[Rfam]
RNA sequence: AAAACCUUUAACUUAGUCCAGAGAGGCUAGCAAGGAUACGAUAAAUUAUAUCUCCCUUUAUUUCGCGGACUUUUGCAUGCGUAAAGGAAGAUAGACGCUUUUUGUACACCUGCAGCCCUCUGCAGGUGUUUUUUAU
Numbered sequence: 001a002a003a004a005c006c007u008u009u010a011a012c013u014u015a016g017u018c019c020a021g022a023g024a025g026g027c028u029a030g031c032a033a034g035g036a037u038a039c040g041a042u043a044a045a046u047u048a049u050a051u052c053u054c055c056c057u058u059u060a061u062u063u064c065g066c067g068g069a070c071u072u073u074u075g076c077a078u079g080c081g082u083a084a085a086g087g088a089a090g091a092u093a094g095a096c097g098c099u100u101u102u103u104g105u106a107c108a109c110c111u112g113c114a115g116c117c118c119u120c121u122g123c124a125g126g127u128g129u130u131u132u133u134u135a136u
Stems, first nucleotide, its partner, number of pairs: 003037001005035004013030006047095001049093005055087006104131001106129010
PyrR binding site: a 136-nucleotide RNA from Lactococcus garvieae. It is annotated as a cis-regulatory element.